[Rfam]
RNA sequence: UUAUCCUUUAAUUAGGUCCAGAGAGGCCUCAAAGGUAGUACGUUUAAAUAGGCACGGAGUGGAUUGCUUUCCGUGAACGUAAACCCUUGGGUUCUCAAACCUAAGGGUUUUUUUUGG
Numbered sequence: 001u002u003a004u005c006c007u008u009u010a011a012u013u014a015g016g017u018c019c020a021g022a023g024a025g026g027c028c029u030c031a032a033a034g035g036u037a038g039u040a041c042g043u044u045u046a047a048a049u050a051g052g053c054a055c056g057g058a059g060u061g062g063a064u065u066g067c068u069u070u071c072c073g074u075g076a077a078c079g080u081a082a083a084c085c086c087u088u089g090g091g092u093u094c095u096c097a098a099a100c101c102u103a104a105g106g107g108u109u110u111u112u113u114u115u116g117g
Stems, first nucleotide, its partner, number of pairs: 005035005014029005053075007061067001079112001081110012
The family of this 117-nucleotide RNA from Limosilactobacillus coleohominis is "PyrR binding site". The literature on the family includes a 2001 paper in Nucleic Acids Res by Bonner et al., "Molecular recognition of pyr mRNA by the Bacillus subtilis attenuation regulatory protein PyrR". Lineage of the source: Bacteria > Bacillati > Bacilli > Limosilactobacillus > Limosilactobacillus coleohominis. By type it is a cis-regulatory element.